[Rfam]
RNA: c-di-AMP riboswitch aptamer (ydaO/yuaA leader)
RNA sequence: CUCUGCCGCUGGCCGGAAUCCGUUCGCACAACCGUUUGGCAGGGGCGGGGGAACCACUUUCGGGCCUCUUCACCGAGGUCCUUGGGGUAAAGCAGCCCGGUGCUUGCACCGGGAGGCCGGAUACUUCCAGUCCGAACCCGACAGCUCACCUCGCAGGCAUUGGGAGAGGCUAC
Number, nucleotide and partner (000 for none) at each position: 001c044002u043003c042004u041005g040006c039007c038008g037009c000010u000011g000012g000013c000014c000015g000016g000017a000018a000019u000020c000021c000022g000023u000024u000025c000026g000027c000028a000029c000030a000031a000032c000033c000034g000035u000036u000037u008038g007039g006040c005041a004042g003043g002044g001045g154046c153047g152048g151049g150050g149051g000052a000053a000054c000055c084056a083057c000058u000059u000060u000061c000062g000063g000064g000065c000066c000067u000068c000069u000070u000071c000072a000073c000074c000075g000076a000077g000078g000079u000080c000081c000082u000083u056084g055085g139086g138087g137088u000089a000090a000091a000092g000093c000094a000095g000096c000097c112098c111099g110100g109101u000102g000103c000104u000105u000106g000107c000108a000109c100110c099111g098112g097113g000114a000115g133116g132117c000118c130119g000120g000121a000122u000123a000124c000125u000126u000127c000128c000129a000130g118131u000132c116133c115134g000135a000136a000137c087138c086139c085140g000141a000142c000143a000144g000145c000146u000147c000148a000149c050150c049151u048152c047153g046154c045155a000156g000157g000158c000159a000160u000161u000162g000163g000164g000165a000166g000167a000168g000169g000170c000171u000172a000173c000